[Rfam]
RNA sequence: UUGUACUAGAUGGGGAGUUAGCGGUGCCCUGUACCCGCAAUCCGCUUUAGCGGGGUUGAAUUCCAUCCCGAGGCAAUCUAUCUGUAAUGCUGACCUUGUUAAGUAGUGUUGAUAGAUGGGUCCCAAGCAAUGAAAGCUCAUGAACCUCGUCAGAUUCGGAAGAAAGCAGCGAUAAGUGAUCACUUUUGUGUGACUUGGGUUCGCCUAUAAGGAGCCAACUGCCAAGGUAACGGUUGGAGAUACUUGUCGACGGAUGGUGUACAU
Numbered sequence: 001u002u003g004u005a006c007u008a009g010a011u012g013g014g015g016a017g018u019u020a021g022c023g024g025u026g027c028c029c030u031g032u033a034c035c036c037g038c039a040a041u042c043c044g045c046u047u048u049a050g051c052g053g054g055g056u057u058g059a060a061u062u063c064c065a066u067c068c069c070g071a072g073g074c075a076a077u078c079u080a081u082c083u084g085u086a087a088u089g090c091u092g093a094c095c096u097u098g099u100u101a102a103g104u105a106g107u108g109u110u111g112a113u114a115g116a117u118g119g120g121u122c123c124c125a126a127g128c129a130a131u132g133a134a135a136g137c138u139c140a141u142g143a144a145c146c147u148c149g150u151c152a153g154a155u156u157c158g159g160a161a162g163a164a165a166g167c168a169g170c171g172a173u174a175a176g177u178g179a180u181c182a183c184u185u186u187u188g189u190g191u192g193a194c195u196u197g198g199g200u201u202c203g204c205c206u207a208u209a210a211g212g213a214g215c216c217a218a219c220u221g222c223c224a225a226g227g228u229a230a231c232g233g234u235u236g237g238a239g240a241u242a243c244u245u246g247u248c249g250a251c252g253g254a255u256g257g258u259g260u261a262c263a264u
Stems, first nucleotide, its partner, number of pairs: 002263005009057003012030004017025003034054005063257006072248005079242005085236004091229002095226004100221001103219002106215002113211001116208006122199006128190002131188005136181001138179004147172004155164003
This 264-nucleotide sequence from Peptostreptococcus anaerobius belongs to the Rfam family "Bacterial large signal recognition particle RNA". The signal recognition particle (SRP) is a universally conserved ribonucleoprotein involved in the co-translational targeting of proteins to membranes. The match comes from Rfam's covariance-model search (195 bits).